[Rfam]
RNA: SAM (S-adenosyl methionine) riboswitch aptamer
Organism: Pedococcus cremeus
RNA sequence: GCUCAGGAGAGGCAACGACAAGUACCUGGCUUGUUGCCCGGCAACCUCCACCGCGGAGGUGCCCCAGGGGAAGAGCUGACCGAGCCGGACCCGGCCCGGUAACAGCGGAUC
Dot-bracket structure: ((((....(.((((((....((.......)).)))))))(((..(((((.....))))).))).........))))..((((.((((....)))).))))...........
Numbered sequence: 001g002c003u004c005a006g007g008a009g010a011g012g013c014a015a016c017g018a019c020a021a022g023u024a025c026c027u028g029g030c031u032u033g034u035u036g037c038c039c040g041g042c043a044a045c046c047u048c049c050a051c052c053g054c055g056g057a058g059g060u061g062c063c064c065c066a067g068g069g070g071a072a073g074a075g076c077u078g079a080c081c082g083a084g085c086c087g088g089a090c091c092c093g094g095c096c097c098g099g100u101a102a103c104a105g106c107g108g109a110u111c
Stems, first nucleotide, its partner, number of pairs: 001076004009039001011038006021031002040063003045059005079100004084095004